Shown here is an 85-nucleotide RNA from Glycine max, a member of the family "Small nucleolar RNA snoR53Y".
[Rfam]
RNA sequence: GUUCCCAAUGAUGUUUUUGCUCUUUUACCAUGCUAAUUCUGAUUACAUAUGAUUAAUACCUAUAGUUUAUUCUACUGAGGGAACU
Numbered sequence: 001g002u003u004c005c006c007a008a009u010g011a012u013g014u015u016u017u018u019g020c021u022c023u024u025u026u027a028c029c030a031u032g033c034u035a036a037u038u039c040u041g042a043u044u045a046c047a048u049a050u051g052a053u054u055a056a057u058a059c060c061u062a063u064a065g066u067u068u069a070u071u072c073u074a075c076u077g078a079g080g081g082a083a084c085u
Stems, first nucleotide, its partner, number of pairs: 001084005
Gene Ontology terms of the family: RNA processing and nucleolus.
By type it is a C/D-box small nucleolar RNA.